[Rfam]
RNA sequence: CCUGUCGAGGGGCGCUGCACGUCGUCCGCCAUAAGGUGGCGAACCCAGGCUCGACAGGCGAUUCACGUACAACGGCGCCCGGCCAAC
Numbered sequence: 001c002c003u004g005u006c007g008a009g010g011g012g013c014g015c016u017g018c019a020c021g022u023c024g025u026c027c028g029c030c031a032u033a034a035g036g037u038g039g040c041g042a043a044c045c046c047a048g049g050c051u052c053g054a055c056a057g058g059c060g061a062u063u064c065a066c067g068u069a070c071a072a073c074g075g076c077g078c079c080c081g082g083c084c085a086a087c
Stems, first nucleotide, its partner, number of pairs: 002057007021044002023041004